[Rfam]
RNA sequence: AAUGUUGUUCCGAGUAUAGCAGAAGUGUUCAUGUCAUGACCCCUGUCAGGUAAUACCUGUGAAUUCUGCU
Numbered sequence: 001a002a003u004g005u006u007g008u009u010c011c012g013a014g015u016a017u018a019g020c021a022g023a024a025g026u027g028u029u030c031a032u033g034u035c036a037u038g039a040c041c042c043c044u045g046u047c048a049g050g051u052a053a054u055a056c057c058u059g060u061g062a063a064u065u066c067u068g069c070u
Base pairs, nucleotide, nucleotide: 012043014041015038018070019069020068021067022066023065024064025037026036027035047059048058049057050056051055

Mammalian CPEB3 ribozyme: a 70-nucleotide RNA from Crocodylus porosus.
Rfam describes the family as follows. The mammalian CPEB3 ribozyme is a self cleaving RNA located in the second intron of the CPEB3 gene which belongs to a family of genes regulating messenger RNA polyadenylation.
The match comes from Rfam's covariance-model search (45 bits).
The base pairs follow the family's consensus structure, which is taken from published work.